This 112-nucleotide RNA sequence from Bacillus sp. T33-2 belongs to the Rfam family "BsrF".

[Rfam]
RNA sequence: GCGAUGAGCUGAAUUGUGUAAGCCGACAUACAUGGCCGUACAGGCCAAUGCACGAUGUGGCGUGCAGUCUGUCGCCUCAAUACGCAUAAAAGACGCCUUACCGGGCGUCUUU
Numbered sequence: 001g002c003g004a005u006g007a008g009c010u011g012a013a014u015u016g017u018g019u020a021a022g023c024c025g026a027c028a029u030a031c032a033u034g035g036c037c038g039u040a041c042a043g044g045c046c047a048a049u050g051c052a053c054g055a056u057g058u059g060g061c062g063u064g065c066a067g068u069c070u071g072u073c074g075c076c077u078c079a080a081u082a083c084g085c086a087u088a089a090a091a092g093a094c095g096c097c098u099u100a101c102c103g104g105g106c107g108u109c110u111u112u
Stems, first nucleotide, its partner, number of pairs: 014080003018076001024074005030068002034046002049066002052063003089112009

Annotation
A search with the family's covariance model found it, with a score of 84 bits.